[Rfam]
RNA sequence: CCGGGCGCCGAUUCCGGGUCCGGUGGGACAUAGAGAGCGCCGGCUCUUCUGCCCCGGCGCGCCUCAUGCCCAGAUUGCUUCGCAAGGAGGAUUUGGAGAUGAGAA
Numbered sequence: 001c002c003g004g005g006c007g008c009c010g011a012u013u014c015c016g017g018g019u020c021c022g023g024u025g026g027g028a029c030a031u032a033g034a035g036a037g038c039g040c041c042g043g044c045u046c047u048u049c050u051g052c053c054c055c056g057g058c059g060c061g062c063c064u065c066a067u068g069c070c071c072a073g074a075u076u077g078c079u080u081c082g083c084a085a086g087g088a089g090g091a092u093u094u095g096g097a098g099a100u101g102a103g104a105a
Stems, first nucleotide, its partner, number of pairs: 001023006008017002035062001037060007063103005070096007078089003
Dot-bracket structure: ((((((.((......))))))))...........(.(((((((..........))))))).)(((((..(((((((.(((......))))))))))..)))))..